Overview
The family of this 90-nucleotide RNA is "RT-18 RNA". By type it is a small RNA. It is one of the family's seed sequences.
RNA sequence: CAGCACUUGCUGAAAAUUAGUCGCCUUGGGUUGGGCUAGUAGGUUUAUCUCCGUGAGGAAUUUCUCGAAAGCUCGAUAGACAAAUAUAAG
Numbered sequence: 001c002a003g004c005a006c007u008u009g010c011u012g013a014a015a016a017u018u019a020g021u022c023g024c025c026u027u028g029g030g031u032u033g034g035g036c037u038a039g040u041a042g043g044u045u046u047a048u049c050u051c052c053g054u055g056a057g058g059a060a061u062u063u064c065u066c067g068a069a070a071g072c073u074c075g076a077u078a079g080a081c082a083a084a085u086a087u088a089a090g
Stems, first nucleotide, its partner, number of pairs: 001012004020081003030077007042066002